[Rfam]
RNA sequence: AUAGAAAAAGCCUGCAGAACAAUUAUUCUGCAGGCCCUUUUUGAUUUUAUAGCUAAUCAAAAAGGUAAAGGGAGAGGAGAAACCGGAAAUAGUUAAUGGGGAAAAUCAGCUAUUUCCGUUU
Numbered sequence: 001a002u003a004g005a006a007a008a009a010g011c012c013u014g015c016a017g018a019a020c021a022a023u024u025a026u027u028c029u030g031c032a033g034g035c036c037c038u039u040u041u042u043g044a045u046u047u048u049a050u051a052g053c054u055a056a057u058c059a060a061a062a063a064g065g066u067a068a069a070g071g072g073a074g075a076g077g078a079g080a081a082a083c084c085g086g087a088a089a090u091a092g093u094u095a096a097u098g099g100g101g102a103a104a105a106u107c108a109g110c111u112a113u114u115u116c117c118g119u120u121u
Base pairs, nucleotide, nucleotide: 011034012033013032014031015030016029017028018027019026035072036071037070038069039068042059043058044057045056046055084118085117086116087115088114089113090112091111092110093109094108096106
Dot-bracket structure: ..........(((((((((......)))))))))(((((..(((((........)))))........)))))...........(((((((((((.(.........).)))))))))))...